[Rfam]
RNA sequence: UAAGUAAGUCAGAUAAUCGCGGGCAGCAUUUUGCUGCGUGAGGAAAGUCGGAGCUCCAUAGAGCAAGGGUGCUAGGUAACGCCUAGUGGGAGCGAUCCUAAGGACAGUGCAACAGAAAAUUACCGCCACUUAAUUGUGGUAAGGAUGAAAAAGUGAGGUAAGAGCUCACUAUGGGCUAGGUGACUAGUUUCAUGUGUAAACCCCACCCGGAGCAAGACCAAGUUAGGAUAAAAAGAGUGCUGCUCGUACUCUCCGGUAUGGUAGGUCGCUUGAGCCUAUUGGUGACAAUAGGCCUAGAAAGAUGAUUAUCUAAUACAGAACUCCGCUUAUAGAUUUGCUUAAUUU
Numbered sequence: 001u002a003a004g005u006a007a008g009u010c011a012g013a014u015a016a017u018c019g020c021g022g023g024c025a026g027c028a029u030u031u032u033g034c035u036g037c038g039u040g041a042g043g044a045a046a047g048u049c050g051g052a053g054c055u056c057c058a059u060a061g062a063g064c065a066a067g068g069g070u071g072c073u074a075g076g077u078a079a080c081g082c083c084u085a086g087u088g089g090g091a092g093c094g095a096u097c098c099u100a101a102g103g104a105c106a107g108u109g110c111a112a113c114a115g116a117a118a119a120u121u122a123c124c125g126c127c128a129c130u131u132a133a134u135u136g137u138g139g140u141a142a143g144g145a146u147g148a149a150a151a152a153g154u155g156a157g158g159u160a161a162g163a164g165c166u167c168a169c170u171a172u173g174g175g176c177u178a179g180g181u182g183a184c185u186a187g188u189u190u191c192a193u194g195u196g197u198a199a200a201c202c203c204c205a206c207c208c209g210g211a212g213c214a215a216g217a218c219c220a221a222g223u224u225a226g227g228a229u230a231a232a233a234a235g236a237g238u239g240c241u242g243c244u245c246g247u248a249c250u251c252u253c254c255g256g257u258a259u260g261g262u263a264g265g266u267c268g269c270u271u272g273a274g275c276c277u278a279u280u281g282g283u284g285a286c287a288a289u290a291g292g293c294c295u296a297g298a299a300a301g302a303u304g305a306u307u308a309u310c311u312a313a314u315a316c317a318g319a320a321c322u323c324c325g326c327u328u329a330u331a332g333a334u335u336u337g338c339u340u341a342a343u344u345u
Base pairs, nucleotide, nucleotide: 001341002340003339004338005337006336007335008334009333010332011330012310013309014308015307016306017305018304020040021039023037024036025035026034027033028032045328046327047326049325050324051323052322053321054212055211056210057209063244067208068207069206070205071204072086073085074084075083076082087101088099089098090097091096102203103202107201108200109197110196111195123144124143125140126139127138128137129136152170153169154168155167156166157165171193173190174189175188176187177186178185179184216267217266218265219264226254227253228252236250237249238248239247240246274293275292276291277290278289279288280287281286